[Rfam]
RNA sequence: UGGGAGGGUGAUACCCAGGCAGGUCUUAGCAUCGUCCUGCCUGUCACAAACCCUCCCUACAUUAUCCCUGCCUUCCGAUGACCGGGGCGAAAUGAGGGAAAUCGCAACGGACAGAUACGAGGCAGACAUCU
Numbered sequence: 001u002g003g004g005a006g007g008g009u010g011a012u013a014c015c016c017a018g019g020c021a022g023g024u025c026u027u028a029g030c031a032u033c034g035u036c037c038u039g040c041c042u043g044u045c046a047c048a049a050a051c052c053c054u055c056c057c058u059a060c061a062u063u064a065u066c067c068c069u070g071c072c073u074u075c076c077g078a079u080g081a082c083c084g085g086g087g088c089g090a091a092a093u094g095a096g097g098g099a100a101a102u103c104g105c106a107a108c109g110g111a112c113a114g115a116u117a118c119g120a121g122g123c124a125g126a127c128a129u130c131u
Base pairs, nucleotide, nucleotide: 002057003056004055005054006053007052016043017042018041022037023036025034068125069124070123071122072121073120074119082110083109084108087105088104089103090102
Shown here is a 131-nucleotide sequence from Conger conger, a member of the family "Small Cajal body specific RNA 8". Gene Ontology terms of the family: Cajal body, RNA processing and nucleolus. The source organism's lineage runs through Eukaryota, Eumetazoa, Neopterygii, Congridae and Conger. Rfam classes the family as a small Cajal body RNA. A search with the family's covariance model found it, with a score of 124 bits. A reference for the family is Huttenhofer et al. (2001), "RNomics: an experimental approach that identifies 201 candidates for novel, small, non-messenger RNAs in mouse", EMBO J. The family's consensus secondary structure is taken from published work. Rfam's curators write: scaRNAs are a specific class of small nuclear RNAs which localise to the Cajal bodies and guide the modification of RNA polymerase II transcribed spliceosomal RNAs U1, U2, U4, U5 and U12. U92 belong to the H/ACA box class of guide RNAs as it has the predicted hairpin-hinge-hairpin-tail structure, conserved H/ACA-box motifs and is found associated with GAR1.